[Rfam]
RNA sequence: GGCCAGUGAUGUAUGGUAAUUGUCCGUACCAUUUGAGGAGCUUUUAGCUUCAUUGAUGUUAUAUUACCUUUAGCUUCUGAGGCCU
Numbered sequence: 001g002g003c004c005a006g007u008g009a010u011g012u013a014u015g016g017u018a019a020u021u022g023u024c025c026g027u028a029c030c031a032u033u034u035g036a037g038g039a040g041c042u043u044u045u046a047g048c049u050u051c052a053u054u055g056a057u058g059u060u061a062u063a064u065u066a067c068c069u070u071u072a073g074c075u076u077c078u079g080a081g082g083c084c085u
Stems, first nucleotide, its partner, number of pairs: 001084004

The family of this 85-nucleotide RNA sequence from Solanum tuberosum is "small nucleolar RNA snoR117". The source organism's lineage runs through Eukaryota, Streptophyta, Pentapetalae, Solanaceae and Solanum. A reference for the family is Chen and Wu (2009), "Mining small RNA sequencing data: a new approach to identify small nucleolar RNAs in Arabidopsis", Nucleic Acids Res. Pairs were carried over by alignment from the consensus structure, which was predicted with RNAalifold. Rfam classes the family as a C/D-box small nucleolar RNA.